[Rfam]
RNA sequence: GUGCUUUAGGGAUGAACUGGUCCCUCAUAUCUAAUAUCCAUCUUUCACUUUGUCAGUUGCCUUUUCGUGUGGCAUGCUGAUCAUUAUAAGAUGGAAAAUGG
Numbered sequence: 001g002u003g004c005u006u007u008a009g010g011g012a013u014g015a016a017c018u019g020g021u022c023c024c025u026c027a028u029a030u031c032u033a034a035u036a037u038c039c040a041u042c043u044u045u046c047a048c049u050u051u052g053u054c055a056g057u058u059g060c061c062u063u064u065u066c067g068u069g070u071g072g073c074a075u076g077c078u079g080a081u082c083a084u085u086a087u088a089a090g091a092u093g094g095a096a097a098a099u100g101g
Stems, first nucleotide, its partner, number of pairs: 037095006052081006

Shown here is a 101-nucleotide sequence from Hibiscus trionum, a member of the family "Small nucleolar RNA snoR99". Its family is annotated with RNA processing and nucleolus in the Gene Ontology. It scores 77 bits against the family's covariance model. By type it is an H/ACA-box small nucleolar RNA. Taxonomically the source falls in Hibiscus (Eukaryota, Tracheophyta, Euphyllophyta, Pentapetalae).